[Rfam]
A member of the RNA family "cspA thermoregulator" from Photobacterium lipolyticum, 445 nucleotides long. The family has 15 seed sequences and 2,094 matches in Rfam 15.1. On this family, see Giuliodori et al., Mol Cell 2010: "The cspA mRNA is a thermosensor that modulates translation of the cold-shock protein CspA". Rfam classes the family as an RNA thermoregulator.
RNA sequence: GCUGCUCUGUUGUUCAGGGUUAUUAAUGCAGCAUAAGUACAAGUUAAACUCUCAGAUACAUCUUCGUUAAGUUUUUGUCCUCAGUGUUUCCCUUAGCUUCAUCGUAACAUUUAAUAAUUCAACUUCUCAGCACAUCGCAUUCUGCGAUUAAUAUUUUAUGAAUUUUUAUAAGGGACAAUACAUGUCUAAUUCAACUACUGGCAUCGUAAAAUGGUUUAACGAAGAGAAAGGUUUUGGCUUUAUUACUCAAGAUAAUGGCGGCGCUGACGUAUUCGUUCAUUUUCGUGCUAUUGCUUCUGAAGGUUUUAAAACGCUAGCUGAAGGUCAAAAGGUUUCUUUUGACGUUGAGCAAGGCCAGAAAGGUCUGCAAGCUGCAAAUGUUGUAGCUCUAUAAUUCGAAGAUUUAUUCUUCAAGUAAAUGCUGGCUAAAGGCCAGCAUUUAUCU
Numbered sequence: 001g002c003u004g005c006u007c008u009g010u011u012g013u014u015c016a017g018g019g020u021u022a023u024u025a026a027u028g029c030a031g032c033a034u035a036a037g038u039a040c041a042a043g044u045u046a047a048a049c050u051c052u053c054a055g056a057u058a059c060a061u062c063u064u065c066g067u068u069a070a071g072u073u074u075u076u077g078u079c080c081u082c083a084g085u086g087u088u089u090c091c092c093u094u095a096g097c098u099u100c101a102u103c104g105u106a107a108c109a110u111u112u113a114a115u116a117a118u119u120c121a122a123c124u125u126c127u128c129a130g131c132a133c134a135u136c137g138c139a140u141u142c143u144g145c146g147a148u149u150a151a152u153a154u155u156u157u158a159u160g161a162a163u164u165u166u167u168a169u170a171a172g173g174g175a176c177a178a179u180a181c182a183u184g185u186c187u188a189a190u191u192c193a194a195c196u197a198c199u200g201g202c203a204u205c206g207u208a209a210a211a212u213g214g215u216u217u218a219a220c221g222a223a224g225a226g227a228a229a230g231g232u233u234u235u236g237g238c239u240u241u242a243u244u245a246c247u248c249a250a251g252a253u254a255a256u257g258g259c260g261g262c263g264c265u266g267a268c269g270u271a272u273u274c275g276u277u278c279a280u281u282u283u284c285g286u287g288c289u290a291u292u293g294c295u296u297c298u299g300a301a302g303g304u305u306u307u308a309a310a311a312c313g314c315u316a317g318c319u320g321a322a323g324g325u326c327a328a329a330a331g332g333u334u335u336c337u338u339u340u341g342a343c344g345u346u347g348a349g350c351a352a353g354g355c356c357a358g359a360a361a362g363g364u365c366u367g368c369a370a371g372c373u374g375c376a377a378a379u380g381u382u383g384u385a386g387c388u389c390u391a392u393a394a395u396u397c398g399a400a401g402a403u404u405u406a407u408u409c410u411u412c413a414a415g416u417a418a419a420u421g422c423u424g425g426c427u428a429a430a431g432g433c434c435a436g437c438a439u440u441u442a443u444c445u
Stems, first nucleotide, its partner, number of pairs: 004020006027250001030247002033244001042241002046239001049236001050231003059226001061225003065221006073214002076184003089175007099117001101115002186201003190197001253347005266274002279333004286327002288324002292317001296313001299312001352366003356362001367392001369390001371389001372386005395415002399411004416442012
Its family is annotated with response to temperature stimulus and regulation of translation in the Gene Ontology.